[Rfam]
Rfam assigns this 162-nucleotide RNA sequence from Acidaminococcus fermentans to the family "M-box riboswitch aptamer (ykoK leader)". It scores 88 bits against the family's covariance model. Lineage of the source: Bacteria > Bacillati > Bacillota > Acidaminococcales > Acidaminococcus fermentans. Rfam describes the family as follows. M-box riboswitch, also know as ykoK leader is described as a metaloregulatory RNA that sense divalent metals and function as a genetic control element of genes related to divalent metal transport in bacteria. The pairing is the family consensus, mapped onto this sequence.
RNA sequence: AAAUAGUUCCGGUAGGCCAGGCUCCUACAGGGAUAUGGACUGCUGCCGCAACAGGAUGGAGACAUCCCGCGUAGGUCUGAACAGGCUGCGUCAAACAAGAAGGCGCCGCAUAAUGCAGUUUCACCGCCCUGUAGAGUUAAAGCUCGUACGGUGGCAGUGGGA
Numbered sequence: 001a002a003a004u005a006g007u008u009c010c011g012g013u014a015g016g017c018c019a020g021g022c023u024c025c026u027a028c029a030g031g032g033a034u035a036u037g038g039a040c041u042g043c044u045g046c047c048g049c050a051a052c053a054g055g056a057u058g059g060a061g062a063c064a065u066c067c068c069g070c071g072u073a074g075g076u077c078u079g080a081a082c083a084g085g086c087u088g089c090g091u092c093a094a095a096c097a098a099g100a101a102g103g104c105g106c107c108g109c110a111u112a113a114u115g116c117a118g119u120u121u122c123a124c125c126g127c128c129c130u131g132u133a134g135a136g137u138u139a140a141a142g143c144u145c146g147u148a149c150g151g152u153g154g155c156a157g158u159g160g161g162a
Stems, first nucleotide, its partner, number of pairs: 005158001007156001009154002011149001013101001015144003020138003025134008039119005045077001046075002048072002055066004085109002090104003